The record is a 194-nucleotide sequence from Paenibacillus whitsoniae, which matches "glmS glucosamine-6-phosphate activated ribozyme aptamer" in Rfam.
About the family: This entry contains a glucosamine-6-phosphate activated ribozyme that is found in the mRNA for GlmS. GlmS is an enzyme that uses fructose-6-phosphate and glutamine to generate glucosamine-6-phosphate. The ribozyme catalyses self cleavage of the glmS mRNA that is thought to regulate GlmS activity.
RNA sequence: GAUUUUAAAAUAGCGCCAGGACUCGCGAGCGGGACGGAAAAGCAGGGAAACGUUACUGCUGCUGCGCGGCGAGUUGACGAGGUGAAGGUGUUCGAAACAUUCGGCGGGGACCUUCCGGCACACAGGAAUGCCGUUAAGUUGGAGAGCAAAAUUGCGCGGGCGACCGGGCAGACAAGGAUCCAACAUCCACUUUU
Dot-bracket structure: ...................(((((((..........................................)))))))........(((((...((((.....))))......)))))(((((........)))))....((((((.........(((.(((....))).)))........))))))..........

Rfam classes the family as a riboswitch.